[Rfam]
RNA sequence: AAUCGUUCCGAGGGGAGCUCCGACGAGGAGCUGAGAUACCGCAAGCUGGCACUCUUCAUCCGAAGAGACGUGCGAGACCGCGGUGACCCUUUGAACCUGAUCCGGGUCAUGCCGGCGAAGGGACAGGGAUGUUACAGAAUA
Numbered sequence: 001a002a003u004c005g006u007u008c009c010g011a012g013g014g015g016a017g018c019u020c021c022g023a024c025g026a027g028g029a030g031c032u033g034a035g036a037u038a039c040c041g042c043a044a045g046c047u048g049g050c051a052c053u054c055u056u057c058a059u060c061c062g063a064a065g066a067g068a069c070g071u072g073c074g075a076g077a078c079c080g081c082g083g084u085g086a087c088c089c090u091u092u093g094a095a096c097c098u099g100a101u102c103c104g105g106g107u108c109a110u111g112c113c114g115g116c117g118a119a120g121g122g123a124c125a126g127g128g129a130u131g132u133u134a135c136a137g138a139a140u141a
Base pairs, nucleotide, nucleotide: 006129007128008127009126011090012089013088014087017031018030019029020028021027038084039083040082041081042080096121097120098119102115103114104113105112

TPP riboswitch aptamer (THI element): a 141-nucleotide sequence from Tardiphaga sp. Its family is annotated with thiamine pyrophosphate binding in the Gene Ontology. The base pairs follow the family's consensus structure, which is taken from published work.